[Rfam]
RNA: Guanidine-I riboswitch aptamer
Organism: Cohnella nanjingensis
RNA sequence: GGAUUCGUUCUCUAGGGUUCCGCGGCGCCUCCAAUCGCCGGUCUGGUCCAAGGGAGAACGCGCGGUCCCGUUAAGCGGGAGGCGUCACGGAGGGAUAAAAGCCCGGGAGUA
Numbered sequence: 001g002g003a004u005u006c007g008u009u010c011u012c013u014a015g016g017g018u019u020c021c022g023c024g025g026c027g028c029c030u031c032c033a034a035u036c037g038c039c040g041g042u043c044u045g046g047u048c049c050a051a052g053g054g055a056g057a058a059c060g061c062g063c064g065g066u067c068c069c070g071u072u073a074a075g076c077g078g079g080a081g082g083c084g085u086c087a088c089g090g091a092g093g094g095a096u097a098a099a100a101g102c103c104c105g106g107g108a109g110u111a
Base pairs, nucleotide, nucleotide: 007059008058009057010056011055012054015049016048020046021045022043023040024039025038026037027036061084062083063082066079067078068077086106088109092104093103094102